RNA sequence: CACUUCUCUUUAAAGCACUCUGCUAAAACUGCAGGAGCCAGACCUCACAGGUUUGGCUCAUGUGGCCGUGUAAGCAUGGGUACACCAGGGAAGGAGAUUAAAGGCACAGUGUCUGAAAUGAGGCUUGGAGGGACCGCUUUCUAAAUGUCCAGUGUCCUUUGUCUCAAGAUGCUGUGUUACAUUU
Numbered sequence: 001c002a003c004u005u006c007u008c009u010u011u012a013a014a015g016c017a018c019u020c021u022g023c024u025a026a027a028a029c030u031g032c033a034g035g036a037g038c039c040a041g042a043c044c045u046c047a048c049a050g051g052u053u054u055g056g057c058u059c060a061u062g063u064g065g066c067c068g069u070g071u072a073a074g075c076a077u078g079g080g081u082a083c084a085c086c087a088g089g090g091a092a093g094g095a096g097a098u099u100a101a102a103g104g105c106a107c108a109g110u111g112u113c114u115g116a117a118a119u120g121a122g123g124c125u126u127g128g129a130g131g132g133a134c135c136g137c138u139u140u141c142u143a144a145a146u147g148u149c150c151a152g153u154g155u156c157c158u159u160u161g162u163c164u165c166a167a168g169a170u171g172c173u174g175u176g177u178u179a180c181a182u183u184u
Stems, first nucleotide, its partner, number of pairs: 018080002021076004028069002031066001035059001037057008103178009128153001131150003
The record is a 184-nucleotide RNA from Labrus bergylta, which matches "Small nucleolar RNA SNORA81" in Rfam. By type it is an H/ACA-box small nucleolar RNA. The organism belongs to Labrus, within Eukaryota. The match comes from Rfam's covariance-model search (101 bits). The family's consensus secondary structure was predicted with WAR.